[Rfam]
RNA sequence: UAUAACUAAUUAACUGUAGUUCGGAAUGAAAGCCGUCAUGUUGAGCCGAAACGAACUGUCUAAUACUCCUGCGUGCGACUAAGAAAUAUAGUUCUGAAUCGUACGAAGCCAGGUGAAGUCGACUGAAUAUAACCUAAAUCAAGCCACUAUAAUGACAAGGAUAUAGAUAGGUCGGGAUGCUAUAAA
Numbered sequence: 001u002a003u004a005a006c007u008a009a010u011u012a013a014c015u016g017u018a019g020u021u022c023g024g025a026a027u028g029a030a031a032g033c034c035g036u037c038a039u040g041u042u043g044a045g046c047c048g049a050a051a052c053g054a055a056c057u058g059u060c061u062a063a064u065a066c067u068c069c070u071g072c073g074u075g076c077g078a079c080u081a082a083g084a085a086a087u088a089u090a091g092u093u094c095u096g097a098a099u100c101g102u103a104c105g106a107a108g109c110c111a112g113g114u115g116a117a118g119u120c121g122a123c124u125g126a127a128u129a130u131a132a133c134c135u136a137a138a139u140c141a142a143g144c145c146a147c148u149a150u151a152a153u154g155a156c157a158a159g160g161a162u163a164u165a166g167a168u169a170g171g172u173c174g175g176g177a178u179g180c181u182a183u184a185a186a
Stems, first nucleotide, its partner, number of pairs: 018057006032046002058178004068113004072105007080097001082095004120174005128165004133160003
Description
The record is a 186-nucleotide RNA sequence from Sporosarcina pasteurii, which matches "Group II catalytic intron D1-D4-5" in Rfam. Group II introns are found in rRNA, tRNA and mRNA of organelles in fungi, plants and protists, and also in mRNA in bacteria. It scores 113 bits against the family's covariance model. The base pairs follow the family's consensus structure. On this family, see Bonen and Vogel, Trends Genet 2001: "The ins and outs of group II introns". The source organism's lineage runs through Bacteria, Bacillati, Bacilli, Caryophanales and Sporosarcina. Rfam links the family to the GO term Group II intron splicing.